Record summary
drz-agam-1 ribozyme: a 79-nucleotide RNA from Hermetia illucens. The base pairs follow the family's consensus structure, which is taken from published work. Rfam 15.1 lists 10,507 matches to the family in 53 species. Gene Ontology term of the family: catalytic activity.
[Rfam]
RNA sequence: UGUUACCAAACCCUAUCUCCACCUCCACGUGGUGACCGCUGGGAGCUGUUUUUUAACGAAAAGCUGCAGACGGAGAAGG
Numbered sequence: 001u002g003u004u005a006c007c008a009a010a011c012c013c014u015a016u017c018u019c020c021a022c023c024u025c026c027a028c029g030u031g032g033u034g035a036c037c038g039c040u041g042g043g044a045g046c047u048g049u050u051u052u053u054u055a056a057c058g059a060a061a062a063g064c065u066g067c068a069g070a071c072g073g074a075g076a077a078g079g
Stems, first nucleotide, its partner, number of pairs: 012079003016075001018073002021033003045067002048064006
The literature on the family includes a 2009 paper in Science by Webb et al., "Widespread occurrence of self-cleaving ribozymes".